Annotation: The record is a 136-nucleotide RNA from Drosophila mojavensis, which matches "Small nucleolar RNA psi18S-1377" in Rfam. About the family: psi18S-1377 is a member of the H/ACA class of snoRNA. This family is responsible for guiding the modification of uridines 1377 and 1279 to pseudouridine in Drosophila 18S rRNA. Rfam links the family to the GO terms nucleolus and RNA processing. The source organism's lineage runs through Eukaryota, Pterygota, Schizophora, Drosophilinae and mojavensis species complex. By type it is an H/ACA-box small nucleolar RNA.
[Rfam]
RNA sequence: CCGUUCUUGUGUUAUUCGCUGAAUUAGCAUUAUCAUUCAGUGAUUGUCAAACAGAACGCAUAGCAAAUUCCAAUUAUCCACGUUGUUGAGCCUAUCUAUUCAAAGGCUUUUACAAUACUAAUCACUGGAUACAGCU
Numbered sequence: 001c002c003g004u005u006c007u008u009g010u011g012u013u014a015u016u017c018g019c020u021g022a023a024u025u026a027g028c029a030u031u032a033u034c035a036u037u038c039a040g041u042g043a044u045u046g047u048c049a050a051a052c053a054g055a056a057c058g059c060a061u062a063g064c065a066a067a068u069u070c071c072a073a074u075u076a077u078c079c080a081c082g083u084u085g086u087u088g089a090g091c092c093u094a095u096c097u098a099u100u101c102a103a104a105g106g107c108u109u110u111u112a113c114a115a116u117a118c119u120a121a122u123c124a125c126u127g128g129a130u131a132c133a134g135c136u
Stems, first nucleotide, its partner, number of pairs: 002058006010049002016043007082116005089108004
Dot-bracket structure: .((((((..((....(((((((..............)))))))....))...)))))).......................(((((..((((............))))...)))))....................